[Rfam]
The record is a 100-nucleotide RNA sequence from Ophiophagus hannah, which matches "Vault RNA" in Rfam. The family's RNA type in Rfam is non-coding RNA gene. Rfam's curators write: This family of RNAs are found as part of the enigmatic vault ribonucleoprotein complex. The complex consists of a major vault protein (MVP), two minor vault proteins (VPARP and TEP1), and several small untranslated RNA molecules. It has been suggested that the vault complex is involved in drug resistance. The family's consensus secondary structure is taken from published work.

Nucleotides: 100
Base pairs, nucleotide, nucleotide: 002095003094004093005092006091012084013083014082015081017080018079020077025074026073027072028071
Number, partner (000 for none) and nucleotide at each position: 001000g002095a003094g004093c005092c006091a007000c008000u009000u010000u011000a012084g013083u014082c015081u016000a017080g018079u019000u020077g021000u022000u023000c024000c025074u026073u027072c028071g029000c030000a031000a032000u033000c034000u035000g036000a037000g038000u039000a040000a041000u042000u043000g044000u045000c046000a047000u048000u049000u050000a051000a052000c053000u054000g055000c056000u057000a058000g059000u060000u061000c062000c063000u064000a065000g066000u067000a068000g069000u070000u071028u072027g073026a074025g075000u076000c077020c078000u079018g080017u081015g082014g083013g084012u085000g086000c087000u088000c089000u090000c091006u092005g093004g094003c095002u096000u097000u098000u099000u100000g